[Rfam]
RNA: Small nucleolar RNA SNORA47
RNA sequence: UGGAGGACUGAGAAGGUAAGACAGUUAAGUUUUACGCUGUAUCUUACUGGUUAUAGCCUCCAAAAUUACAACAGUGCAAUGGCAACUCGUGUUCCCCUUCUCACAUGAGGGAAAGCAGUACUGUAUUUGCAUAUAAAUC
Number, nucleotide and partner (000 for none) at each position: 001u000002g061003g060004a059005g058006g057007a000008c000009u000010g000011a000012g000013a000014a000015g048016g047017u046018a045019a042020g000021a040022c039023a038024g037025u036026u000027a000028a000029g000030u000031u000032u000033u000034a000035c000036g025037c024038u023039g022040u021041a000042u019043c000044u000045u018046a017047c016048u015049g000050g000051u000052u000053a000054u000055a000056g000057c006058c005059u004060c003061c002062a000063a000064a000065a000066u000067u000068a000069c000070a000071a000072c000073a000074g000075u000076g000077c000078a000079a000080u000081g000082g130083c129084a000085a000086c000087u000088c000089g124090u123091g122092u000093u000094c000095c000096c000097c118098u117099u000100c115101u114102c000103a000104c111105a000106u000107g000108a000109g000110g000111g104112a000113a000114a101115g100116c000117a098118g097119u000120a000121c000122u091123g090124u089125a000126u000127u000128u000129g083130c082131a000132u000133a000134u000135a000136a000137a000138u000139c000